Background
A member of the RNA family "Bacterial RNase P class A" from Myroides guanonis, 314 nucleotides long. The match comes from Rfam's covariance-model search (191 bits). The organism belongs to Myroides, within Bacteria.
RNA sequence: CAAGCAGACUGCCUUAUCGCUAGUUCAGUUUUGAAUUAGAGGAAAGUCCGGACACCAAAGAGUAGCAUAGUGGGUAACGCCCAUCCGUGGUUCGCCAUGAGGACAAGUGCAACAGAAAGUAUGUACAGGUAAUGCUGUAGUGAAACCAGGUAAACUCUAUGCGGUGAAAUGUCAUGUAUAUUUAGCGUUUGAGGGCUACUCGCUCGAUGCUUUAGGGGUAGGCAGAUUGAGCCAUCGAGUAAUUGAUGGCCUAGAUAAAUGAUAAGGGUGUUCUUCGGAACAUACAGAAUCCGGCUUAUAAGUCUGCUUUUUUA
Numbered sequence: 001c002a003a004g005c006a007g008a009c010u011g012c013c014u015u016a017u018c019g020c021u022a023g024u025u026c027a028g029u030u031u032u033g034a035a036u037u038a039g040a041g042g043a044a045a046g047u048c049c050g051g052a053c054a055c056c057a058a059a060g061a062g063u064a065g066c067a068u069a070g071u072g073g074g075u076a077a078c079g080c081c082c083a084u085c086c087g088u089g090g091u092u093c094g095c096c097a098u099g100a101g102g103a104c105a106a107g108u109g110c111a112a113c114a115g116a117a118a119g120u121a122u123g124u125a126c127a128g129g130u131a132a133u134g135c136u137g138u139a140g141u142g143a144a145a146c147c148a149g150g151u152a153a154a155c156u157c158u159a160u161g162c163g164g165u166g167a168a169a170u171g172u173c174a175u176g177u178a179u180a181u182u183u184a185g186c187g188u189u190u191g192a193g194g195g196c197u198a199c200u201c202g203c204u205c206g207a208u209g210c211u212u213u214a215g216g217g218g219u220a221g222g223c224a225g226a227u228u229g230a231g232c233c234a235u236c237g238a239g240u241a242a243u244u245g246a247u248g249g250c251c252u253a254g255a256u257a258a259a260u261g262a263u264a265a266g267g268g269u270g271u272u273c274u275u276c277g278g279a280a281c282a283u284a285c286a287g288a289a290u291c292c293g294g295c296u297u298a299u300a301a302g303u304c305u306g307c308u309u310u311u312u313u314a
Base pairs, nucleotide, nucleotide: 002309003308004307005306006305007304008303009302010301011299012267013266014265015264016263017262018261020039021038022037023036024035025034026033027032044297045296046295048294049293050292051291052290053166054165055164056163060201061200062199063198065162066161067160068159069158070084071083072082073081074080085101086099087098088097089096102157103156107155108154109151110150124139125138126137127136128135170224171223172222173221181214184211185210193205194204195203196202231250232249233248234247235246236245237244238243
By type it is a ribozyme.
Pairs were carried over by alignment from the consensus structure, which is taken from published work.